Background: The family of this 77-nucleotide RNA sequence from Maylandia zebra is "mir-1788 microRNA precursor family". NCBI's taxonomy places the organism under Eukaryota, Metazoa, Percomorphaceae, Cichliformes, Maylandia zebra complex. It scores 74 bits against the family's covariance model.
[Rfam]
RNA sequence: UGGCUUUCGAGGCUUGUUUUAAGUUGCCUGUGAAUUUUAUCUGUUACACAGGCAGCUAAAGCAAGCCUUGAACACCA
Numbered sequence: 001u002g003g004c005u006u007u008c009g010a011g012g013c014u015u016g017u018u019u020u021a022a023g024u025u026g027c028c029u030g031u032g033a034a035u036u037u038u039a040u041c042u043g044u045u046a047c048a049c050a051g052g053c054a055g056c057u058a059a060a061g062c063a064a065g066c067c068u069u070g071a072a073c074a075c076c077a
Base pairs, nucleotide, nucleotide: 003075006072007071008070010068011067012066013065014064015063016062017061018060019059020058022057023056024055025054026053027052028051029050030049032047